A member of the RNA family "Small nucleolar RNA SNORA53" from Owenia fusiformis, 200 nucleotides long. By type it is an H/ACA-box small nucleolar RNA. About the family: The snoRNA ACA53 belongs to the H/ACA family of pseudouridylation guide snoRNAs. Gene Ontology terms of the family: nucleolus and RNA processing.
[Rfam]
RNA sequence: AACACAUUCCUUAGAUCCACUUCUGGGAGAGCUGGAGGUGUUUCACCUUCAGUUAAUCCAGCAACUUUAUUGGUUGUACCAUCAGAAGUGCUUGAGUCAUAAGUGUGUAAGAGCAAUAUACCUUCACUUGUAGCAUUCAGCUUGUGCAUUCACACUUCAGUGACGAUUGUUGUACAAGCAUAGCUGCUCGUGUGGACAUA
Numbered sequence: 001a002a003c004a005c006a007u008u009c010c011u012u013a014g015a016u017c018c019a020c021u022u023c024u025g026g027g028a029g030a031g032c033u034g035g036a037g038g039u040g041u042u043u044c045a046c047c048u049u050c051a052g053u054u055a056a057u058c059c060a061g062c063a064a065c066u067u068u069a070u071u072g073g074u075u076g077u078a079c080c081a082u083c084a085g086a087a088g089u090g091c092u093u094g095a096g097u098c099a100u101a102a103g104u105g106u107g108u109a110a111g112a113g114c115a116a117u118a119u120a121c122c123u124u125c126a127c128u129u130g131u132a133g134c135a136u137u138c139a140g141c142u143u144g145u146g147c148a149u150u151c152a153c154a155c156u157u158c159a160g161u162g163a164c165g166a167u168u169g170u171u172g173u174a175c176a177a178g179c180a181u182a183g184c185u186g187c188u189c190g191u192g193u194g195g196a197c198a199u200a
Base pairs, nucleotide, nucleotide: 002108003107004106005105006104007103008102010096011095012094013093014092018090019089020088021087022086023085024084025083026059027058028057031053032052033051034050037047038046039045040044061077062076063075064074065073066072122195123194125192126191131186132185133184134183141178142177143176144175145174146173147172148171152170153169154168156166